Record summary:
This 75-nucleotide RNA sequence from Mariniplasma anaerobium belongs to the Rfam family "c-di-GMP-I riboswitch aptamer". The source organism's lineage runs through Bacteria, Bacillati, Mycoplasmatota, Acholeplasmatales and Mariniplasma.
[Rfam]
RNA sequence: AAUGUAUAAGGGCAAACUUAGGGAAACCUAAGGACGCAAAGCUAUAGGGCCUAUAAAUGGUAGCCAGUUGUCAUU
Number, nucleotide and partner (000 for none) at each position: 001a000002a000003u000004g000005u000006a000007u000008a000009a000010g000011g000012g037013c036014a000015a000016a000017c032018u031019u030020a029021g028022g027023g000024a000025a000026a000027c022028c021029u020030a019031a018032g017033g000034a000035c000036g013037c012038a000039a000040a069041g068042c067043u066044a000045u000046a000047g065048g064049g061050c060051c059052u000053a000054u000055a000056a000057a000058u000059g051060g050061u049062a000063g000064c048065c047066a043067g042068u041069u040070g000071u000072c000073a000074u000075u000

Description
Its Rfam clan is "c-di-GMP_I riboswitch clan".